[Rfam]
Pseudomon-1/ErsA RNA: a 122-nucleotide sequence from Halopseudomonas salegens.
The base pairs follow the family's consensus structure, which is taken from published work.
Rfam classes the family as a small RNA.
Taxonomically the source falls in Halopseudomonas (Bacteria, Pseudomonadati, Gammaproteobacteria, Pseudomonadales).
The literature on the family includes a 2015 paper in Environ Microbiol by Ferrara et al., "Post-transcriptional regulation of the virulence-associated enzyme AlgC by the sigma(22) -dependent small RNA ErsA of Pseudomonas aeruginosa".
The match comes from Rfam's covariance-model search (64 bits).
Rfam's curators write: Functions to regulate the AlgC enzyme. Based on this information, the new name ErsA for the RNA was adopted.
RNA sequence: AAGCUCCCUAGAUGUGAUUUAGUGUUGGCAAAUCGAACCGGGCAUUCUUCCCCUAGCACAGCCCGGUGGUUAGACCCCGAACUUUUCUCCCCAUAGAAGUUCGGGGUUUUUUUUGCCUACUC
Numbered sequence: 001a002a003g004c005u006c007c008c009u010a011g012a013u014g015u016g017a018u019u020u021a022g023u024g025u026u027g028g029c030a031a032a033u034c035g036a037a038c039c040g041g042g043c044a045u046u047c048u049u050c051c052c053c054u055a056g057c058a059c060a061g062c063c064c065g066g067u068g069g070u071u072a073g074a075c076c077c078c079g080a081a082c083u084u085u086u087c088u089c090c091c092c093a094u095a096g097a098a099g100u101u102c103g104g105g106g107u108u109u110u111u112u113u114u115g116c117c118u119a120c121u122c
Stems, first nucleotide, its partner, number of pairs: 037067007072110003075106010